A member of the RNA family "Microsporidia small subunit ribosomal RNA" from Enterocytozoon bieneusi, 449 nucleotides of a longer RNA. For this family Rfam cites "Crystal structure of the ribosome at 5.5 A resolution" (Yusupov et al., Science, 2001).
RNA sequence: CCUUAGGUUGAUUUUUGGCUAAAGGAAGAAUGUAUUUUUUUGGGAUUAAACCCAUGCAUGUUCAGGAAACCCUUACGUGGGAAAGGGGAACGGGUCCAGAAAGGUGGGGGAAAUUGGGUUUCGGGGGAAAACUAACCCCGGUAACCUGUGGUUAAAAGCGGGGAAUAAAGCGCAACCUUUUCAGCUUGUUGGUAGGUAAAGGACUACCAAGGCCAUGACGGGUAACGGGAAAUCAGGGUUUGAUUCCGGAGAGGGAGCCUGAGAGAUGGCUCCCACGUCCAAGGACGGCAGCAGGCGCGAAACUUGUCCACUCCUUACGGGGGAGACAGUCAUGAGACGUGAGUAUAAGACCUGAGUGUAAAGACCUUAGGGUGAAGCAAUUGGAGGGCAAGCUUUGGUGCCAGCAGCCGCGGUAACUCCAACUCCAAGAGUGUCUAUGGUGGAUGCUG
Number, nucleotide and partner (000 for none) at each position: 001c000002c000003u000004u022005a000006g020007g019008u018009u000010g000011a000012u000013u000014u000015u000016u000017g000018g008019c007020u006021a000022a004023a000024g000025g438026a000027a436028g435029a000030a434031u433032g432033u431034a000035u000036u000037u337038u336039u335040u334041u000042g331043g330044g298045a000046u000047u000048a000049a000050a000051c295052c294053c000054a000055u293056g292057c291058a000059u000060g000061u086062u000063c085064a000065g000066g000067a000068a000069a078070c077071c000072c000073u000074u000075a000076c000077g070078u069079g000080g000081g000082a000083a000084a000085g063086g061087g000088g000089a000090a000091c000092g000093g000094g000095u250096c249097c000098a000099g000100a000101a000102a000103g000104g176105u175106g000107g173108g000109g171110g000111a000112a000113a000114u168115u167116g000117g000118g000119u164120u163121u162122c161123g000124g159125g000126g000127g000128a000129a000130a000131a000132c000133u000134a000135a152136c151137c150138c000139c148140g147141g146142u000143a000144a000145c000146c141147u140148g139149u000150g137151g136152u135153u000154a000155a000156a000157a000158g000159c124160g000161g122162g121163g120164a119165a000166u000167a115168a114169a000170g000171c109172g000173c107174a000175a105176c104177c222178u221179u220180u000181u000182c000183a000184g213185c212186u211187u000188g000189u210190u209191g208192g207193u206194a205195g204196g000197u000198a000199a000200a000201g000202g000203a000204c195205u194206a193207c192208c191209a190210a189211g186212g185213c184214c000215a000216u000217g000218a000219c000220g179221g178222g177223u000224a000225a000226c248227g247228g246229g245230a241231a240232a239233u238234c000235a000236g000237g000238g233239u232240u231241u230242g000243a000244u000245u229246c228247c227248g226249g096250a095251g000252a000253g274254g273255g272256a271257g270258c269259c000260u000261g000262a000263g000264a000265g000266a000267u000268g000269g258270c257271u256272c255273c254274c253275a000276c287277g286278u285279c284280c000281a000282a000283g000284g279285a278286c277287g276288g000289c000290a000291g057292c056293a055294g052295g051296c000297g000298c044299g000300a000301a000302a000303c000304u328305u000306g327307u326308c325309c000310a000311c000312u323313c322314c321315u320316u000317a000318c000319g000320g315321g314322g313323g312324a000325g308326a307327c306328a304329g000330u043331c042332a000333u000334g040335a039336g038337a037338c000339g000340u000341g000342a000343g000344u000345a000346u000347a000348a000349g000350a000351c371352c370353u369354g368355a367356g366357u000358g000359u000360a000361a000362a000363g000364a000365c000366c356367u355368u354369a353370g352371g351372g000373u000374g000375a000376a000377g000378c000379a000380a000381u428382u427383g426384g425385a424386g423387g000388g000389c000390a000391a000392g000393c000394u000395u422396u421397g420398g419399u000400g000401c000402c000403a000404g411405c410406a000407g000408c000409c000410g405411c404412g000413g000414u000415a000416a000417c000418u000419c398420c397421a396422a395423c386424u385425c384426c383427a382428a381429g000430a000431g033432u032433g031434u030435c028436u027437a000438u025439g000440g000441u000442g000443g000444a000445u000446g000447c000448u000449g000